[Rfam]
RNA sequence: AAAUAUGCCUUCUGGACCUGUCGCUAUGGCAGUUUUCCUUCCUAGCCAUGGAAGAGCAUUUUCUUAUUUAUUGGCAAAGCUGUCACCAUUUAAUUGCUAUCAGAUUCUGACUUGCACAAGUAACAUUC
Numbered sequence: 001a002a003a004u005a006u007g008c009c010u011u012c013u014g015g016a017c018c019u020g021u022c023g024c025u026a027u028g029g030c031a032g033u034u035u036u037c038c039u040u041c042c043u044a045g046c047c048a049u050g051g052a053a054g055a056g057c058a059u060u061u062u063c064u065u066a067u068u069u070a071u072u073g074g075c076a077a078a079g080c081u082g083u084c085a086c087c088a089u090u091u092a093a094u095u096g097c098u099a100u101c102a103g104a105u106u107c108u109g110a111c112u113u114g115c116a117c118a119a120g121u122a123a124c125a126u127u128c
Base pairs, nucleotide, nucleotide: 003049004048014037015036016035018032019031020030021029022028065125067123068122071119072118073117074115075114076113077112080103081102082101085098087096088095
RNA: Small nucleolar RNA SNORA24
Organism: Myotis myotis